[Rfam]
RNA sequence: AAACUGGUGAGAAUCGCGCAGAUGAAAAAUCUGUGAGGAAAGUCCGUGCUCGCACAGGCUGCGAUGCCUGUAGUGUUCGUGCCUAGCGAAACCGUAAGCUAGGGCAGCUCAAAGUUUUGGGCUGACGGCAGGGAAAAUACCUACGUCCUUUUGGGAUAUGGUAUGAUUACCUUGAAAGUGCCACAGUGACGUAGCUCCAAUGGAAACAUUGGAGGUGGAACGAGGUAAACCCCACGAGCGAGAAACCCAAAUUUGGUAGGGGAAGUGUCUGGAGGGAAAUGAACCGAACAGACACCAUAGCCUUAUGGGCUGUGAGAUAGAUGAUUCUCCAUUCUAGUGCGAGAAUGUGUCAUGCAUUCGUUCGCAGCACUGAAUGAACAGAACACGGCUUACAAAG
Numbered sequence: 001a002a003a004c005u006g007g008u009g010a011g012a013a014u015c016g017c018g019c020a021g022a023u024g025a026a027a028a029a030u031c032u033g034u035g036a037g038g039a040a041a042g043u044c045c046g047u048g049c050u051c052g053c054a055c056a057g058g059c060u061g062c063g064a065u066g067c068c069u070g071u072a073g074u075g076u077u078c079g080u081g082c083c084u085a086g087c088g089a090a091a092c093c094g095u096a097a098g099c100u101a102g103g104g105c106a107g108c109u110c111a112a113a114g115u116u117u118u119g120g121g122c123u124g125a126c127g128g129c130a131g132g133g134a135a136a137a138u139a140c141c142u143a144c145g146u147c148c149u150u151u152u153g154g155g156a157u158a159u160g161g162u163a164u165g166a167u168u169a170c171c172u173u174g175a176a177a178g179u180g181c182c183a184c185a186g187u188g189a190c191g192u193a194g195c196u197c198c199a200a201u202g203g204a205a206a207c208a209u210u211g212g213a214g215g216u217g218g219a220a221c222g223a224g225g226u227a228a229a230c231c232c233c234a235c236g237a238g239c240g241a242g243a244a245a246c247c248c249a250a251a252u253u254u255g256g257u258a259g260g261g262g263a264a265g266u267g268u269c270u271g272g273a274g275g276g277a278a279a280u281g282a283a284c285c286g287a288a289c290a291g292a293c294a295c296c297a298u299a300g301c302c303u304u305a306u307g308g309g310c311u312g313u314g315a316g317a318u319a320g321a322u323g324a325u326u327c328u329c330c331a332u333u334c335u336a337g338u339g340c341g342a343g344a345a346u347g348u349g350u351c352a353u354g355c356a357u358u359c360g361u362u363c364g365c366a367g368c369a370c371u372g373a374a375u376g377a378a379c380a381g382a383a384c385a386c387g388g389c390u391u392a393c394a395a396a397g
Base pairs, nucleotide, nucleotide: 004397005396007393009329010328011327012326013325014324015323017035018034019033020032021031022030040391041390042389044388045387046386047385048384049242050241051240052239053238054071055070056069057068058067059066077237078236079235080234081233082103083102084101085100086099087098104126105124106123107122108121109120110119111118112117127232128231130172131171132170138163139162140161141160145157146156147155178230179229180226181225182224195214196213197212198211199210200209201208202207246261247260248259265295266294267293268292269291270290271289296314297313298312299311300310301309302308303307331375332374333373334372336371337370338369339368340367